[Rfam]
RNA: Potassium channel RNA editing signal
Organism: Branchiostoma floridae
Nucleotides: 114
Stems, first nucleotide, its partner, number of pairs: 001114002004111002007108005013102003021094001037077002040074001050062001
Number, partner (000 for none) and nucleotide at each position: 001114g002113u003000u004111g005110g006000g007108u008107a009106c010105g011104g012000g013102g014101a015100c016000a017000a018000c019000a020000c021094c022000c023000c024000u025000c026000u027000c028000a029000c030000g031000g032000u033000u034000g035000g036000c037077g038076g039000a040074a041000a042000a043000a044000u045000c046000g047000u048000c049000g050062g051000g052000g053000c054000c055000g056000u057000g058000u059000g060000u061000g062050c063000g064000g065000u066000g067000a068000c069000g070000g071000g072000a073000c074040u075000g076038u077037u078000g079000g080000u081000c082000a083000u084000c085000g086000c087000g088000c089000u090000g091000c092000c093000g094021g095000u096000g097000c098000c099000g100015g101014u102013u103000a104011u105010c106009g107008u108007g109000u110005c111004c112000a113002a114001c